[Rfam]
RNA sequence: GGUCAAUGAUGUGAUGAUGUAAAAGGUCUGAUGCACAGUUCCACUGCCCGCUAUCCAUCGGCUCCUAACAGCCCCUGCUCUACUCCCAACCUGCUCUAGUUGUGCAUCGUUGGACACAGGGGCUGCUGACAUAGAGGAUGACGUCACAUCCGGUGUCUUUAAGAGACCAUGGAGUCACUGUGACGGACGUCCAACAGAACCAAUCACUAAGGAGUAUCAGGCUGUGGUAUGGGGCUGGGCUGCUGAUCUCAAAUUUCGAACUGAGACC
Numbered sequence: 001g002g003u004c005a006a007u008g009a010u011g012u013g014a015u016g017a018u019g020u021a022a023a024a025g026g027u028c029u030g031a032u033g034c035a036c037a038g039u040u041c042c043a044c045u046g047c048c049c050g051c052u053a054u055c056c057a058u059c060g061g062c063u064c065c066u067a068a069c070a071g072c073c074c075c076u077g078c079u080c081u082a083c084u085c086c087c088a089a090c091c092u093g094c095u096c097u098a099g100u101u102g103u104g105c106a107u108c109g110u111u112g113g114a115c116a117c118a119g120g121g122g123c124u125g126c127u128g129a130c131a132u133a134g135a136g137g138a139u140g141a142c143g144u145c146a147c148a149u150c151c152g153g154u155g156u157c158u159u160u161a162a163g164a165g166a167c168c169a170u171g172g173a174g175u176c177a178c179u180g181u182g183a184c185g186g187a188c189g190u191c192c193a194a195c196a197g198a199a200c201c202a203a204u205c206a207c208u209a210a211g212g213a214g215u216a217u218c219a220g221g222c223u224g225u226g227g228u229a230u231g232g233g234g235c236u237g238g239g240c241u242g243c244u245g246a247u248c249u250c251a252a253a254u255u256u257c258g259a260a261c262u263g264a265g266a267c268c
Stems, first nucleotide, its partner, number of pairs: 001268004037249002040246002044227003049224002062214004066128002069125004086113005094104001136192001140191006152179004157174005